Description
Small nucleolar RNA Z278: a 118-nucleotide RNA sequence from Anisodus acutangulus. Rfam's curators write: snoZ278 is a C/D box small nucleolar RNA. Its methylation guide targets have not been reported. On this family, see Chen et al., Nucleic Acids Res 2003: "The high diversity of snoRNAs in plants: identification and comparative study of 120 snoRNA genes from Oryza sativa". Gene Ontology terms of the family: nucleolus and RNA processing.

RNA sequence: GCCAAUGAUGAUCCAAUCCAACGGUGAGGUGUAGUGAAGCUAAGGUCCCUGCUUUGCAGGGGGAACCUCCUUGGUUACACUACAUCAUACAUAUGAUCACAACGGAUUUUACUGAGGC
Numbered sequence: 001g002c003c004a005a006u007g008a009u010g011a012u013c014c015a016a017u018c019c020a021a022c023g024g025u026g027a028g029g030u031g032u033a034g035u036g037a038a039g040c041u042a043a044g045g046u047c048c049c050u051g052c053u054u055u056g057c058a059g060g061g062g063g064a065a066c067c068u069c070c071u072u073g074g075u076u077a078c079a080c081u082a083c084a085u086c087a088u089a090c091a092u093a094u095g096a097u098c099a100c101a102a103c104g105g106a107u108u109u110u111a112c113u114g115a116g117g118c
Base pairs, nucleotide, nucleotide: 001118002117003116047061048060049059050058051057
Dot-bracket structure: (((...........................................(((((.....)))))......................................................)))

Source information:
The source organism's lineage runs through Eukaryota, Streptophyta, Euphyllophyta, Hyoscyameae and Anisodus.